Actinobacteria sRNA Ms_IGR-5: a 217-nucleotide RNA sequence from Nakamurella endophytica. It scores 77 bits against the family's covariance model. The base pairs follow the family's consensus structure. It is annotated as a small RNA.
[Rfam]
RNA sequence: ACACGGGAGAGGAGGUGGUCCGACGUUGAAUACUUUUCGGACUCGUGAGGUGACUGGCCGCUAGGCCGUCGUUCACCGCGCCGGGCUGUUCGCCCGUCCCUUCGGACGGCGGUCUGGCUAGCACCGGACAGUCACCCGACCCCCGGGCGCCGAUCUUGUCCAGUCGGCCCGUCCCCCGCACCGUGCGGGGAGCGGAAGUGCCCGGGGGUUGUCCGUA
Numbered sequence: 001a002c003a004c005g006g007g008a009g010a011g012g013a014g015g016u017g018g019u020c021c022g023a024c025g026u027u028g029a030a031u032a033c034u035u036u037u038c039g040g041a042c043u044c045g046u047g048a049g050g051u052g053a054c055u056g057g058c059c060g061c062u063a064g065g066c067c068g069u070c071g072u073u074c075a076c077c078g079c080g081c082c083g084g085g086c087u088g089u090u091c092g093c094c095c096g097u098c099c100c101u102u103c104g105g106a107c108g109g110c111g112g113u114c115u116g117g118c119u120a121g122c123a124c125c126g127g128a129c130a131g132u133c134a135c136c137c138g139a140c141c142c143c144c145g146g147g148c149g150c151c152g153a154u155c156u157u158g159u160c161c162a163g164u165c166g167g168c169c170c171g172u173c174c175c176c177c178g179c180a181c182c183g184u185g186c187g188g189g190g191a192g193c194g195g196a197a198g199u200g201c202c203c204g205g206g207g208g209u210u211g212u213c214c215g216u217a
Stems, first nucleotide, its partner, number of pairs: 014058001016056004060118010071107003137211013